The record is an 83-nucleotide RNA from Hermetia illucens, which matches "Small nucleolar RNA Me28S-Gm3255" in Rfam.
Gene Ontology terms of the family: nucleolus and RNA processing.
For this family Rfam cites "Genome-wide analyses of two families of snoRNA genes from Drosophila melanogaster, demonstrating the extensive utilization of introns for coding of snoRNAs" (Huang et al., RNA, 2005).
Pairs were carried over by alignment from the consensus structure, which was predicted with PFOLD.
The match comes from Rfam's covariance-model search (56 bits).
The family's RNA type in Rfam is C/D-box small nucleolar RNA.
RNA sequence: AUUUAAUGAUGAAUACCAAUCAUUUUCUGACACCUCUAAUGAAACAUCGUGAUUCUAUUAGUUGAUUGUUAUAAUCUGAGAAU
Numbered sequence: 001a002u003u004u005a006a007u008g009a010u011g012a013a014u015a016c017c018a019a020u021c022a023u024u025u026u027c028u029g030a031c032a033c034c035u036c037u038a039a040u041g042a043a044a045c046a047u048c049g050u051g052a053u054u055c056u057a058u059u060a061g062u063u064g065a066u067u068g069u070u071a072u073a074a075u076c077u078g079a080g081a082a083u
Stems, first nucleotide, its partner, number of pairs: 001083003039050004